Annotation
The record is a 70-nucleotide sequence from Equus caballus, which matches "Small nucleolar RNA U2-30" in Rfam. By type it is a C/D-box small nucleolar RNA. The literature on the family includes a 2004 paper in Curr Biol by Tycowski et al., "Guide RNAs with 5' Caps and Novel Box C/D snoRNA-like Domains for Modification of snRNAs in Metazoa".
[Rfam]
RNA sequence: GAGCAAUGAUGAAAAAAGGUUUUACUACUGGCCUUUAUAACUAUGAAAGUUUCGACACAAGCUGAGCUCA
Dot-bracket structure: ((((..........(((((((........))))))).............................)))).